[Rfam]
RNA sequence: GAGCCAGCUUAGCCCAGCGGCUCCAUCGAUCAAUGCGUAGCUUGGAUCCUGCAAUCGCCCACAGGCAGCGGUUUGAAACCUGCGGGCACUGCUUGGCUUUUUA
Numbered sequence: 001g002a003g004c005c006a007g008c009u010u011a012g013c014c015c016a017g018c019g020g021c022u023c024c025a026u027c028g029a030u031c032a033a034u035g036c037g038u039a040g041c042u043u044g045g046a047u048c049c050u051g052c053a054a055u056c057g058c059c060c061a062c063a064g065g066c067a068g069c070g071g072u073u074u075g076a077a078a079c080c081u082g083c084g085g086g087c088a089c090u091g092c093u094u095g096g097c098u099u100u101u102u103a
Base pairs, nucleotide, nucleotide: 002098003097004096005095006094007093012087013086014085015084017083018082019081020080026076027075028074029073
RNA: Vault RNA
Organism: Podarcis muralis